[Rfam]
RNA sequence: UACGAACUUACUUAUAUCUCUCAUAUAUCUCCGGGAAUAUGGCCCGAACGUUUCUACCCGAUAACCGUAAAUUAUCGGACUAUGAGAGAAAGUGCACCCUUU
Numbered sequence: 001u002a003c004g005a006a007c008u009u010a011c012u013u014a015u016a017u018c019u020c021u022c023a024u025a026u027a028u029c030u031c032c033g034g035g036a037a038u039a040u041g042g043c044c045c046g047a048a049c050g051u052u053u054c055u056a057c058c059c060g061a062u063a064a065c066c067g068u069a070a071a072u073u074a075u076c077g078g079a080c081u082a083u084g085a086g087a088g089a090a091a092g093u094g095c096a097c098c099c100u101u102u
Stems, first nucleotide, its partner, number of pairs: 018088008030048001032046004058078007
RNA: Purine riboswitch aptamer
Organism: Sporosarcina sp. BI001-red